[Rfam]
RNA sequence: AUGCGAAGUUCCCAGCAGAGAGGUGAAUUAAUCUUUAAUAUUGAGGCCUCCCUAACCAUUUAUUUCAAUAUUCUUCGUAAAUUUAUUUUGCCGAAUCGUAGGAUGCCCAAAUAUAUUUGACUUUUGGUUCAUCUGUAAAAUCGGCUAUAUCUUU
Numbered sequence: 001a002u003g004c005g006a007a008g009u010u011c012c013c014a015g016c017a018g019a020g021a022g023g024u025g026a027a028u029u030a031a032u033c034u035u036u037a038a039u040a041u042u043g044a045g046g047c048c049u050c051c052c053u054a055a056c057c058a059u060u061u062a063u064u065u066c067a068a069u070a071u072u073c074u075u076c077g078u079a080a081a082u083u084u085a086u087u088u089u090g091c092c093g094a095a096u097c098g099u100a101g102g103a104u105g106c107c108c109a110a111a112u113a114u115a116u117u118u119g120a121c122u123u124u125u126g127g128u129u130c131a132u133c134u135g136u137a138a139a140a141u142c143g144g145c146u147a148u149a150u151c152u153u154u
Stems, first nucleotide, its partner, number of pairs: 003078006011020001013018001025052001033045003037041001090145005102133002105130001107127005